[Rfam]
RNA: Small nucleolar RNA SNORA81
RNA sequence: CCCUUCUGCAUUAACAGAAGUCUGUUAUAAUUGCGUGAUUCAGCUUUUGUUUCAUGCAAUAAUGCUAACAGACUAUUGCGCGGAAGGAGAUUAUUUUGCACUGUACUGAAAAUGAGAUGUGGUCGAACCUCUUUCUUAAUGUUCGUUGGCCUCGGUCUCAAGGUGCAGUGUCACAUUU
Dot-bracket structure: ...................((.(((((..((((..((...(((...)))...)).....))))..))))).))........................((((((((..............(.(.((((..............)))).).)..............)))))))).......